[Rfam]
RNA sequence: ACCGAAUUCCCGGAGAGGGGACUCCGGGAAGACACAAUAAUUUAAGAUUAAGUGGUAGGAAUCAACGAGCUGGAUUACU
Number, nucleotide and partner (000 for none) at each position: 001a000002c000003c000004g000005a000006a000007u030008u029009c028010c027011c026012g025013g024014a023015g022016a000017g000018g000019g000020g000021a000022c015023u014024c013025c012026g011027g010028g009029a008030a007031g000032a000033c000034a000035c000036a000037a000038u000039a000040a000041u000042u000043u000044a000045a000046g000047a000048u000049u000050a000051a000052g000053u000054g000055g000056u000057a000058g000059g000060a000061a000062u000063c000064a075065a000066c073067g000068a000069g000070c000071u000072g000073g066074a000075u064076u000077a000078c000079u000
Annotation
The record is a 79-nucleotide sequence from Brachypodium distachyon, which matches "Plastid-rpl20 3UTR RNA" in Rfam. Plastid rpl20 is a non-coding RNA (ncRNA) recognised in plastids. It was found in the three prime untranslated region (3UTR) of rpl20 gene, it presence in the 3UTR region sugest a role in transcript maduration. The match comes from Rfam's covariance-model search (80 bits). The family's consensus secondary structure was predicted with LocARNA.